[Rfam]
RNA: Glycine riboswitch aptamer
RNA sequence: AGACGGCACUCUGGAAAGCGCCCCGGCCCCGGCCGUGGCCACCGAAGGGGUAAGCCUUGCGGCCGCGCCGCACGGCGAAAGCUCUCAGGUUCCGUGACAGAGGGGGCUUG
Numbered sequence: 001a002g003a004c005g006g007c008a009c010u011c012u013g014g015a016a017a018g019c020g021c022c023c024c025g026g027c028c029c030c031g032g033c034c035g036u037g038g039c040c041a042c043c044g045a046a047g048g049g050g051u052a053a054g055c056c057u058u059g060c061g062g063c064c065g066c067g068c069c070g071c072a073c074g075g076c077g078a079a080a081g082c083u084c085u086c087a088g089g090u091u092c093c094g095u096g097a098c099a100g101a102g103g104g105g106g107c108u109u110g
Base pairs, nucleotide, nucleotide: 007104009102010101011100012099013098020039021038022037041090042089043088044086045085048084049083050082054076055075